Shown here is a 91-nucleotide RNA from Geosporobacter ferrireducens, a member of the family "c-di-GMP-I riboswitch aptamer".
The source organism's lineage runs through Bacteria, Bacillati, Bacillota, Thermotaleaceae and Geosporobacter.
The base pairs follow the family's consensus structure, which is taken from published work.
RNA sequence: GCAUGAUAAUAGCAAACUUACCGAAAAGUAAGGACGCAAAGCCAUGGAUCUAAGGGGUAUUUUUUUAUUCUAUGAUUGCCAGGUUGCCAAA
Dot-bracket structure: ...........((...(((((......)))))...))..((((.((((((....((((........))))...)))..)))))))......